The record is a 367-nucleotide sequence from Lactobacillus johnsonii, which matches "transfer-messenger RNA" in Rfam. Gene Ontology term of the family: RNA catabolic process. The source organism's lineage runs through Bacteria, Bacillati, Bacillota, Lactobacillaceae and Lactobacillus johnsonii.
[Rfam]
RNA sequence: GGGGAUGUUUUGGGAUUCGACAGGCGUAGAUUCGCGUUGACUGCGAUUCGUAGGUCACGUCUACGUUAAAAACGUCACAGUUAAAUUAUAACUGCAAAUAACGAAAAUUCUUACGCAGUAGCUGCUUAGUCAGCCUGCGUGAUCCAAAGAUGGAUUGCUCGUGUCUAUCUACGGGUCUUACCAUUUAACGAGCUACGUUUAACUACUUACCUUAAUAGUUAGAAAUAAGAUUCUUAGGUUAGUUUUGAUAGUUUAGCCCUGUUAUAUGGCGUUUUAUCAAAGCGAAUUUUAAGUAAUAUAACUAUGAUCGUAGAUGUUAACGACGAAAUACGUUUGGACAGGGGUUCAAUUCCCCUCAUCUCCAUAG
Numbered sequence: 001g002g003g004g005a006u007g008u009u010u011u012g013g014g015a016u017u018c019g020a021c022a023g024g025c026g027u028a029g030a031u032u033c034g035c036g037u038u039g040a041c042u043g044c045g046a047u048u049c050g051u052a053g054g055u056c057a058c059g060u061c062u063a064c065g066u067u068a069a070a071a072a073c074g075u076c077a078c079a080g081u082u083a084a085a086u087u088a089u090a091a092c093u094g095c096a097a098a099u100a101a102c103g104a105a106a107a108u109u110c111u112u113a114c115g116c117a118g119u120a121g122c123u124g125c126u127u128a129g130u131c132a133g134c135c136u137g138c139g140u141g142a143u144c145c146a147a148a149g150a151u152g153g154a155u156u157g158c159u160c161g162u163g164u165c166u167a168u169c170u171a172c173g174g175g176u177c178u179u180a181c182c183a184u185u186u187a188a189c190g191a192g193c194u195a196c197g198u199u200u201a202a203c204u205a206c207u208u209a210c211c212u213u214a215a216u217a218g219u220u221a222g223a224a225a226u227a228a229g230a231u232u233c234u235u236a237g238g239u240u241a242g243u244u245u246u247g248a249u250a251g252u253u254u255a256g257c258c259c260u261g262u263u264a265u266a267u268g269g270c271g272u273u274u275u276a277u278c279a280a281a282g283c284g285a286a287u288u289u290u291a292a293g294u295a296a297u298a299u300a301a302c303u304a305u306g307a308u309c310g311u312a313g314a315u316g317u318u319a320a321c322g323a324c325g326a327a328a329u330a331c332g333u334u335u336g337g338a339c340a341g342g343g344g345u346u347c348a349a350u351u352c353c354c355c356u357c358a359u360c361u362c363c364a365u366a367g
Stems, first nucleotide, its partner, number of pairs: 001363007021336008032325001035322007044310005049065005054078002057075004118138004123133001141177005149169007157193006198224003202220001204218001211238005242283010256270003261302004267296001340356005